Overview: Shown here is a 77-nucleotide RNA, a member of the family "RAGATH-18 RNA". It is annotated as a small RNA. Pairs were carried over by alignment from the consensus structure, which is taken from published work. Actinobacteria, Firmicutes, Fusobacteria, Thermotogae (1 example).
RNA sequence: ACUGUGGAGUGCAUAAAAAAAUGUGAGUAGUAUAUUUAAUUUUAUAAAUUACAAAAGCAUGUACUAUGAAGCAGUAA
Dot-bracket structure: (((((...(((((........(((.....(((..((.........))..)))....))))))))......)))))..